[Rfam]
RNA: Small nucleolar RNA SNORD101
Organism: Podiceps cristatus
RNA sequence: GUUUGGGUGAUGACUUAAGAAUUUGUCGGAUACCCCUUCACUCUUACUGAGUGACAACAGCAGUCUGACAAAC
Dot-bracket structure: (((((...............................................................)))))